[Rfam]
RNA sequence: CUGAAUGAUCCUAUGCCCUGGAACCCUAUCGAUAUUGUCUCUGCUGUCUUUAUUGCUCUGAGUAGUGCAAUAUUGCUUAUAGGGUUUCAGUGUUUGGGGAGC
Numbered sequence: 001c002u003g004a005a006u007g008a009u010c011c012u013a014u015g016c017c018c019u020g021g022a023a024c025c026c027u028a029u030c031g032a033u034a035u036u037g038u039c040u041c042u043g044c045u046g047u048c049u050u051u052a053u054u055g056c057u058c059u060g061a062g063u064a065g066u067g068c069a070a071u072a073u074u075g076c077u078u079a080u081a082g083g084g085u086u087u088c089a090g091u092g093u094u095u096g097g098g099g100a101g102c
Base pairs, nucleotide, nucleotide: 020088021087022086023085024084025083026082027081028080029079030075031074032073033072034071035070036069037068038067041065042064043063044062045061
mir-454 microRNA precursor family: a 102-nucleotide RNA from Polypterus senegalus.
Rfam links the family to the GO terms RISC complex and miRNA-mediated post-transcriptional gene silencing.
The literature on the family includes a 2005 paper in Genes Dev by Chen et al., "The developmental miRNA profiles of zebrafish as determined by small RNA cloning".